The record is a 55-nucleotide sequence from Nonomuraea sp. SBT364, which matches "L17-Actino-Proteobacteria ribosomal protein leader" in Rfam.
The family's RNA type in Rfam is cis-regulatory leader.
The base pairs follow the family's consensus structure, which is taken from published work.
The sequence is in the family's curated seed alignment.
[Rfam]
RNA sequence: CGGACCCGUCCCGGGUCUGGCGGCCCGACCCCGGUACCUGGCACGGCCGGGGCGG
Numbered sequence: 001c002g003g004a005c006c007c008g009u010c011c012c013g014g015g016u017c018u019g020g021c022g023g024c025c026c027g028a029c030c031c032c033g034g035u036a037c038c039u040g041g042c043a044c045g046g047c048c049g050g051g052g053c054g055g
Stems, first nucleotide, its partner, number of pairs: 001019007024055002029052007
Dot-bracket structure: (((((((.....)))))))....((...(((((((..........))))))).))